RNA sequence: UUCAUCUGGUCCCCUUGCAAUUGCUCGUGAAAAUCUUUUGCUUCCUACCAAAGAUUUCCGUGCGGGGGGACUUCCAUGAUAACGUAUCUAUUUUUGGACAGCCCCCAGUGGGCUA
Numbered sequence: 001u002u003c004a005u006c007u008g009g010u011c012c013c014c015u016u017g018c019a020a021u022u023g024c025u026c027g028u029g030a031a032a033a034u035c036u037u038u039u040g041c042u043u044c045c046u047a048c049c050a051a052a053g054a055u056u057u058c059c060g061u062g063c064g065g066g067g068g069g070a071c072u073u074c075c076a077u078g079a080u081a082a083c084g085u086a087u088c089u090a091u092u093u094u095u096g097g098a099c100a101g102c103c104c105c106c107a108g109u110g111g112g113c114u115a
Base pairs, nucleotide, nucleotide: 004080005079006078009071010070011069012068013067014066015065016064017063018062019061031057032056033055034054035053036052037051038050102111103110
U5 spliceosomal RNA: a 115-nucleotide RNA sequence from Gongylonema pulchrum. U5 RNA is a component of both types of known spliceosome. The precise function of this molecule is unknown, though it is known that the 5' loop is required for splice site selection and p220 binding, and that both the 3' stem-loop and the Sm site are important for Sm protein binding and cap methylation. The family's RNA type in Rfam is spliceosomal small nuclear RNA. Taxonomically the source falls in Gongylonema (Eukaryota, Opisthokonta, Protostomia, Ecdysozoa).